The record is a 112-nucleotide sequence, which matches "IMPDH RNA" in Rfam. By type it is a small RNA.

[Rfam]
RNA sequence: AAUAAGAGAUAUCGGGUGCAGGGCCUUCUCCUCCUCCGGCUGUUCUCCUUCACAGCUGCCGGCCACUGUACCGCACAGGCGGUAUCUCGCUUCGUGUGCAAAAAAGUCCGUC
Number, nucleotide and partner (000 for none) at each position: 001a000002a000003u000004a000005a000006g000007a087008g086009a085010u084011a083012u082013c081014g000015g072016g071017u070018g069019c068020a067021g000022g000023g063024c062025c061026u000027u000028c000029u000030c000031c000032u000033c000034c000035u000036c000037c058038g057039g056040c055041u054042g053043u052044u000045c000046u000047c000048c000049u000050u000051c000052a043053c042054a041055g040056c039057u038058g037059c000060c000061g025062g024063c023064c000065a000066c000067u020068g019069u018070a017071c016072c015073g097074c096075a095076c094077a092078g091079g090080c089081g013082g012083u011084a010085u009086c008087u007088c000089g080090c079091u078092u077093c000094g076095u075096g074097u073098g000099c000100a000101a000102a000103a000104a000105a000106g000107u000108c000109c000110g000111u000112c000